[Rfam]
Shown here is a 98-nucleotide RNA sequence from Bacteroidetes bacterium B1(2017), a member of the family "SAM-I/IV (S-adenosyl methionine) riboswitch aptamer". It scores 55 bits against the family's covariance model. The base pairs follow the family's consensus structure, which is taken from published work. NCBI's taxonomy places the organism under Bacteria, Pseudomonadati, Bacteroidota. On this family, see Weinberg et al., RNA 2008: "The aptamer core of SAM-IV riboswitches mimics the ligand-binding site of SAM-I riboswitches".
RNA sequence: GCAGUGCAUUAAGAAUUUGCUUAACAGCGAAUGCCAACCGGGAAGAACACCACGGUGGUAAAACGAUGCGGACUUUCUUGUCAAAUACAGUUCAACCU
Numbered sequence: 001g002c003a004g005u006g007c008a009u010u011a012a013g014a015a016u017u018u019g020c021u022u023a024a025c026a027g028c029g030a031a032u033g034c035c036a037a038c039c040g041g042g043a044a045g046a047a048c049a050c051c052a053c054g055g056u057g058g059u060a061a062a063a064c065g066a067u068g069c070g071g072a073c074u075u076u077c078u079u080g081u082c083a084a085a086u087a088c089a090g091u092u093c094a095a096c097c098u
Stems, first nucleotide, its partner, number of pairs: 006069005015032001017031002019028003033059003038055003041051002047092001071082003